RNA sequence: UUGCAUGUGGAAAUACCUUCUCCUCAUUCUCUGGAGCAGGAAUACACCCAGAACAUGCUACAUUAAAAAAGGAGUUCUUAGGGCUGCCAGCCUUAAGUAGAGGUUGAGCAGUAGUAUAUUUGUCCUACACAA
Dot-bracket structure: ..((((((.......(((.((((.........)))).)))............))))))............(((.........((..((((((((.....))))))).)..))..........))).......